Rfam assigns this 95-nucleotide sequence from Salmonella bongori to the family "rseX Hfq binding RNA". The family's RNA type in Rfam is small RNA. The source organism's lineage runs through Bacteria, Pseudomonadati, Gammaproteobacteria, Salmonella and Salmonella bongori. Rfam's curators put it in the seed alignment. On this family, see Douchin et al., J Biol Chem 2006: "Down-regulation of porins by a small RNA bypasses the essentiality of the regulated intramembrane proteolysis protease RseP in Escherichia coli".
[Rfam]
RNA sequence: UUAUUGACAUUACAUGUCAAAAUGAUCUGGUUAUUAGCCUUUUAUCAUUUAUUUUUCUAUUACCCUCAUUGCCGGCAGUGAUGCCGGUUUUUUUU
Number, nucleotide and partner (000 for none) at each position: 001u000002u000003a000004u000005u000006g000007a000008c000009a000010u000011u000012a000013c000014a000015u037016g000017u000018c000019a034020a000021a032022a031023u030024g000025a000026u000027c000028u000029g000030g023031u022032u021033a000034u019035u000036a000037g015038c000039c000040u000041u000042u000043u000044a000045u000046c000047a000048u000049u000050u000051a000052u000053u000054u000055u000056u000057c000058u000059a000060u000061u000062a000063c000064c000065c000066u000067c000068a000069u000070u000071g088072c087073c086074g085075g084076c083077a000078g000079u000080g000081a000082u000083g076084c075085c074086g073087g072088u071089u000090u000091u000092u000093u000094u000095u000